RNA: Group II catalytic intron D1-D4-1
RNA sequence: CAAUCGAAGUGGUGACAUCUCGAUGAAUCACAAGAAGUCAGCCGAAGUCAUAGUAGUAUCCCAUCUGACAAGGAUACGAAGGAC
Numbered sequence: 001c002a003a004u005c006g007a008a009g010u011g012g013u014g015a016c017a018u019c020u021c022g023a024u025g026a027a028u029c030a031c032a033a034g035a036a037g038u039c040a041g042c043c044g045a046a047g048u049c050a051u052a053g054u055a056g057u058a059u060c061c062c063a064u065c066u067g068a069c070a071a072g073g074a075u076a077c078g079a080a081g082g083a084c
Stems, first nucleotide, its partner, number of pairs: 001025002004023004009018003038045002047084003056077006